[Rfam]
RNA sequence: ACCUUCUCUCUAAAGCACCCUGCUCAAACUGCAGGAGCUGAACCUGUUUCAGCUCAUGUGGCCGUGUAAGCAUGGGUACACCAGGGAAGAAGAUUAACAUCACAGAAUUGCAAAGGAGACUGGGAGGGACCUCUUUCUUAAUGUUCCAGUUCCUUUGUCUCAAGAUCCUGUGUUACACAC
Numbered sequence: 001a002c003c004u005u006c007u008c009u010c011u012a013a014a015g016c017a018c019c020c021u022g023c024u025c026a027a028a029c030u031g032c033a034g035g036a037g038c039u040g041a042a043c044c045u046g047u048u049u050c051a052g053c054u055c056a057u058g059u060g061g062c063c064g065u066g067u068a069a070g071c072a073u074g075g076g077u078a079c080a081c082c083a084g085g086g087a088a089g090a091a092g093a094u095u096a097a098c099a100u101c102a103c104a105g106a107a108u109u110g111c112a113a114a115g116g117a118g119a120c121u122g123g124g125a126g127g128g129a130c131c132u133c134u135u136u137c138u139u140a141a142u143g144u145u146c147c148a149g150u151u152c153c154u155u156u157g158u159c160u161c162a163a164g165a166u167c168c169u170g171u172g173u174u175a176c177a178c179a180c
Stems, first nucleotide, its partner, number of pairs: 018076002021072004028065002031062001035055001037053006099174001101172005107166001122151001126147004

The record is a 180-nucleotide RNA sequence from Nothobranchius furzeri, which matches "Small nucleolar RNA SNORA81" in Rfam.
The literature on the family includes a 2005 paper in Nucleic Acids Res by Gu et al., "A novel experimental approach for systematic identification of box H/ACA snoRNAs from eukaryotes".
It is annotated as an H/ACA-box small nucleolar RNA.
A search with the family's covariance model found it, with a score of 110 bits.
Gene Ontology terms of the family: RNA processing and nucleolus.